[Rfam]
RNA sequence: GCACGGCCGAAUUCUGCGCUAGCGUUCCUCGGUGGCUAGUGCAGUCAGACACCGUGCCAGAACAGAUCCCUUCUCCACGCUGCCGGCUGUGCUCUCGUUUGCGCAGGGACAUGCCUCUGGAAGCGGGGUACAGAG
Number, nucleotide and partner (000 for none) at each position: 001g057002c056003a055004c054005g053006g052007c000008c000009g000010a000011a000012u000013u000014c044015u043016g042017c041018g040019c039020u000021a000022g000023c000024g000025u000026u000027c000028c000029u000030c000031g000032g000033u000034g000035g000036c000037u000038a000039g019040u018041g017042c016043a015044g014045u000046c000047a000048g000049a000050c000051a000052c006053c005054g004055u003056g002057c001058c000059a000060g000061a000062a000063c000064a000065g000066a000067u000068c128069c127070c126071u000072u123073c000074u121075c120076c119077a118078c000079g000080c000081u000082g000083c000084c000085g114086g000087c000088u111089g110090u109091g000092c107093u106094c000095u000096c000097g000098u000099u000100u000101g000102c000103g000104c000105a000106g093107g092108g000109a090110c089111a088112u000113g000114c085115c000116u000117c000118u077119g076120g075121a074122a000123g072124c000125g000126g070127g069128g068129u000130a000131c000132a000133g000134a000135g000